RNA sequence: CGUUGGCCCUCCACAGGUCAACACCGAAGAGGCUUGUUUAUCAUUGCCAGGCGUGCGGACGGGAAAUCCCCAUCCAAUCCAAGGCAGCAUCGUCGGGUGAAGAGCCCAUUGCCGCUCGUCGUGUCUCCAUCGCACGAGGCGGAAUGCCAUCUU
Number, nucleotide and partner (000 for none) at each position: 001c000002g022003u021004u020005g019006g018007c017008c016009c000010u000011c000012c000013a000014c000015a000016g008017g007018u006019c005020a004021a003022c002023a000024c000025c000026g000027a000028a000029g000030a000031g048032g047033c046034u000035u000036g000037u000038u000039u000040a000041u000042c000043a000044u000045u000046g033047c032048c031049a000050g000051g000052c000053g000054u000055g133056c132057g131058g000059a000060c000061g000062g000063g000064a000065a000066a000067u000068c000069c000070c000071c000072a000073u000074c000075c000076a000077a000078u000079c000080c000081a000082a000083g094084g093085c000086a000087g000088c000089a000090u000091c000092g000093u084094c083095g000096g000097g000098u000099g000100a000101a000102g117103a116104g115105c114106c000107c000108a000109u000110u000111g000112c000113c000114g105115c104116u103117c102118g000119u000120c000121g000122u000123g000124u000125c000126u000127c000128c000129a000130u000131c057132g056133c055134a000135c000136g000137a000138g000139g000140c000141g000142g000143a000144a000145u000146g000147c000148c000149a000150u000151c000152u000153u000